[Rfam]
RNA sequence: AUUGCUGUCUUACCAGGCAAAGUUAGAUCUGAGUUUUCGUGUCUAAUACUGUCUGGUAAUGCCGUCAAU
Numbered sequence: 001a002u003u004g005c006u007g008u009c010u011u012a013c014c015a016g017g018c019a020a021a022g023u024u025a026g027a028u029c030u031g032a033g034u035u036u037u038c039g040u041g042u043c044u045a046a047u048a049c050u051g052u053c054u055g056g057u058a059a060u061g062c063c064g065u066c067a068a069u
Base pairs, nucleotide, nucleotide: 002068003067004066006064007063009061010059011058012057013056014055015054016053017052018051019050022047023046024045025044026043027042
RNA: mir-8/mir-141/mir-200 microRNA precursor family